[Rfam]
Mammalian CPEB3 ribozyme: a 78-nucleotide sequence from Crocodylus porosus. The organism belongs to Crocodylus, within Eukaryota.
RNA sequence: AGAUCACAACUUCAAGGCCACAGCAGAAGUGCUUAUGGUGUAGCCUGUCAGAUUCCAGUGAAAUCUGUGAAUUCUGCU
Numbered sequence: 001a002g003a004u005c006a007c008a009a010c011u012u013c014a015a016g017g018c019c020a021c022a023g024c025a026g027a028a029g030u031g032c033u034u035a036u037g038g039u040g041u042a043g044c045c046u047g048u049c050a051g052a053u054u055c056c057a058g059u060g061a062a063a064u065c066u067g068u069g070a071a072u073u074c075u076g077c078u
Stems, first nucleotide, its partner, number of pairs: 016045003022078007029041003049067006

From the family's description: The mammalian CPEB3 ribozyme is a self cleaving RNA located in the second intron of the CPEB3 gene which belongs to a family of genes regulating messenger RNA polyadenylation. This ribozyme is highly conserved and found only in mammals.